[Rfam]
RNA sequence: GUUUUGAUGAAUCUAACAAUUCGUAUAUCCUCAGAAAUAUGGUUUGAGGGUUUCUACAGGGAACCGUAAAUUCCCGGCUACGAAUGGGGUUGUUCUUGAC
Numbered sequence: 001g002u003u004u005u006g007a008u009g010a011a012u013c014u015a016a017c018a019a020u021u022c023g024u025a026u027a028u029c030c031u032c033a034g035a036a037a038u039a040u041g042g043u044u045u046g047a048g049g050g051u052u053u054c055u056a057c058a059g060g061g062a063a064c065c066g067u068a069a070a071u072u073c074c075c076g077g078c079u080a081c082g083a084a085u086g087g088g089g090u091u092g093u094u095c096u097u098g099a100c
Stems, first nucleotide, its partner, number of pairs: 019085007029049007059075005
Purine riboswitch aptamer: a 100-nucleotide sequence from Brevibacillus centrosporus. Taxonomically the source falls in Brevibacillus (Bacteria, Bacillati, Bacilli, Paenibacillaceae). From the family's description: Riboswitches are metabolite binding domains within certain messenger RNAs that serve as precision sensors for their corresponding targets. It scores 75 bits against the family's covariance model.